[Rfam]
RNA sequence: CGACACCUCCCUUUACUCGGAUCGUCCGGCACGUUCCUGCCGGUGAAGGAGACACAA
Numbered sequence: 001c002g003a004c005a006c007c008u009c010c011c012u013u014u015a016c017u018c019g020g021a022u023c024g025u026c027c028g029g030c031a032c033g034u035u036c037c038u039g040c041c042g043g044u045g046a047a048g049g050a051g052a053c054a055c056a057a
Stems, first nucleotide, its partner, number of pairs: 009049002012047004026043006
Dot-bracket structure: ........((.((((..........((((((......))))))))))))........
RNA: msiK RNA